The record is an 81-nucleotide sequence, which matches "Proteo-phage-1 RNA" in Rfam.
[Rfam]
RNA sequence: CCACAGCCAGGUUGGCCCUUCGGGGGAUGCCUGGACGCUGAUAAGCCAGUAGUGCAGCGCUACGGGAAAAUACCGGCAGCC
Numbered sequence: 001c002c003a004c005a006g007c008c009a010g011g012u013u014g015g016c017c018c019u020u021c022g023g024g025g026g027a028u029g030c031c032u033g034g035a036c037g038c039u040g041a042u043a044a045g046c047c048a049g050u051a052g053u054g055c056a057g058c059g060c061u062a063c064g065g066g067a068a069a070a071u072a073c074c075g076g077c078a079g080c081c
Stems, first nucleotide, its partner, number of pairs: 001015003007034005016025003036059005045077003049073001
It is annotated as a small RNA. It is one of the family's seed sequences.